[Rfam]
RNA sequence: UCAUAAGAUCUCUAGGGUUCCGACCUGUAACUGAAAUGGGUGGCUGGUCCGAGAGGGGUCGGUUUAUCAGAUUUUCCGGUAUGGAAAAGCUAGAUAGAUUACACGGCGGGAUAAAAGCCCGGGAGAG
Numbered sequence: 001u002c003a004u005a006a007g008a009u010c011u012c013u014a015g016g017g018u019u020c021c022g023a024c025c026u027g028u029a030a031c032u033g034a035a036a037u038g039g040g041u042g043g044c045u046g047g048u049c050c051g052a053g054a055g056g057g058g059u060c061g062g063u064u065u066a067u068c069a070g071a072u073u074u075u076c077c078g079g080u081a082u083g084g085a086a087a088a089g090c091u092a093g094a095u096a097g098a099u100u101a102c103a104c105g106g107c108g109g110g111a112u113a114a115a116a117g118c119c120c121g122g123g124a125g126a127g
Stems, first nucleotide, its partner, number of pairs: 007060006015050002020047002022044001023041006061100008102122001104125001108120003